[Rfam]
RNA sequence: GGGGGCGACUUGGCUUCGACGCGGACAGUGAAACCCGAGGUGCAUGCCGAGGAUUGCAGUUUCCUCGUAAAUCCACUGCAAAACCAAUAGUUGCCAACGACGACAACUACCUCCUGGCGGCUUAAACGCCCCAGCCUCUGACCGACUUUGUGCUUGUGCGAUCGGAUUCCAGAGGUCAAAUCACACAAGAUCGCAUCUUCCGAUCGCCUCGCUCGGAGAUGCUAAAACCCCUAGAGGCUCGCCGAUUCGCAGCCUUGCCCGCCGGGUAACGAAUCGGUCAAAUCAAACGACGGGCUAAGCAUGUAGAUCCAAAGGCAGAUCGUUUGCGGACGCGGGUUCAAUUCCCGCCGCCUCCACCA
Numbered sequence: 001g002g003g004g005g006c007g008a009c010u011u012g013g014c015u016u017c018g019a020c021g022c023g024g025a026c027a028g029u030g031a032a033a034c035c036c037g038a039g040g041u042g043c044a045u046g047c048c049g050a051g052g053a054u055u056g057c058a059g060u061u062u063c064c065u066c067g068u069a070a071a072u073c074c075a076c077u078g079c080a081a082a083a084c085c086a087a088u089a090g091u092u093g094c095c096a097a098c099g100a101c102g103a104c105a106a107c108u109a110c111c112u113c114c115u116g117g118c119g120g121c122u123u124a125a126a127c128g129c130c131c132c133a134g135c136c137u138c139u140g141a142c143c144g145a146c147u148u149u150g151u152g153c154u155u156g157u158g159c160g161a162u163c164g165g166a167u168u169c170c171a172g173a174g175g176u177c178a179a180a181u182c183a184c185a186c187a188a189g190a191u192c193g194c195a196u197c198u199u200c201c202g203a204u205c206g207c208c209u210c211g212c213u214c215g216g217a218g219a220u221g222c223u224a225a226a227a228c229c230c231c232u233a234g235a236g237g238c239u240c241g242c243c244g245a246u247u248c249g250c251a252g253c254c255u256u257g258c259c260c261g262c263c264g265g266g267u268a269a270c271g272a273a274u275c276g277g278u279c280a281a282a283u284c285a286a287a288c289g290a291c292g293g294g295c296u297a298a299g300c301a302u303g304u305a306g307a308u309c310c311a312a313a314g315g316c317a318g319a320u321c322g323u324u325u326g327c328g329g330a331c332g333c334g335g336g337u338u339c340a341a342u343u344c345c346c347g348c349c350g351c352c353u354c355c356a357c358c359a
Stems, first nucleotide, its partner, number of pairs: 001355007020328007028320002034315002039310002043303005048067005055080006114134004119130003135175006142165004147161002153189006193222007206238005241278009253266003257295005263289001332348005
The record is a 359-nucleotide RNA from Ectothiorhodospiraceae bacterium AqS1, which matches "transfer-messenger RNA" in Rfam.
On this family, see Williams and Bartel, RNA 1996: "Phylogenetic analysis of tmRNA secondary structure".
The family's RNA type in Rfam is non-coding RNA gene.
Lineage of the source: Bacteria > Pseudomonadati > Pseudomonadota > Gammaproteobacteria > Ectothiorhodospiraceae.
The base pairs follow the family's consensus structure, which is taken from published work.